Rfam assigns this 132-nucleotide sequence from Calidifontibacillus erzurumensis to the family "ylbH leader". It scores 92 bits against the family's covariance model. A reference for the family is Barrick et al. (2004), "New RNA motifs suggest an expanded scope for riboswitches in bacterial genetic control", Proc Natl Acad Sci U S A.
RNA sequence: AAUAAAAAAUCCCUGCUUUCGCAGGGUCCUUCCAUAUUCUUGGACGCUAAACUUCAUCCAAGAGCGAAGAAGGAAAAGGGAGAGGAGAAACCGGAGGAAGAACUUAUGGGGAAACGUAAGUCUUCUCCGCGG
Numbered sequence: 001a002a003u004a005a006a007a008a009a010u011c012c013c014u015g016c017u018u019u020c021g022c023a024g025g026g027u028c029c030u031u032c033c034a035u036a037u038u039c040u041u042g043g044a045c046g047c048u049a050a051a052c053u054u055c056a057u058c059c060a061a062g063a064g065c066g067a068a069g070a071a072g073g074a075a076a077a078g079g080g081a082g083a084g085g086a087g088a089a090a091c092c093g094g095a096g097g098a099a100g101a102a103c104u105u106a107u108g109g110g111g112a113a114a115c116g117u118a119a120g121u122c123u124u125c126u127c128c129g130c131g132g
Stems, first nucleotide, its partner, number of pairs: 011026006027080005037067001092129004097125004102121005

From the family's description: This family is a putative regulatory RNA structure that is found upstream of the ylbH gene in B. subtilis and related low GC Gram-positive bacteria. The organism belongs to Calidifontibacillus, within Bacteria. Rfam links the family to the GO term regulation of gene expression.